Shown here is a 67-nucleotide RNA sequence from Pontibacillus marinus, a member of the family "Bacillaceae-1 RNA". The base pairs follow the family's consensus structure, which is taken from published work.
[Rfam]
RNA sequence: AAACAAGGAAGAUCGACUAAACCCGCCAAAUCGUGUGGCAACGUCGACCUACCCCACGUCGUGUGGG
Numbered sequence: 001a002a003a004c005a006a007g008g009a010a011g012a013u014c015g016a017c018u019a020a021a022c023c024c025g026c027c028a029a030a031u032c033g034u035g036u037g038g039c040a041a042c043g044u045c046g047a048c049c050u051a052c053c054c055c056a057c058g059u060c061g062u063g064u065g066g067g
Stems, first nucleotide, its partner, number of pairs: 011049001013047005025039004053067005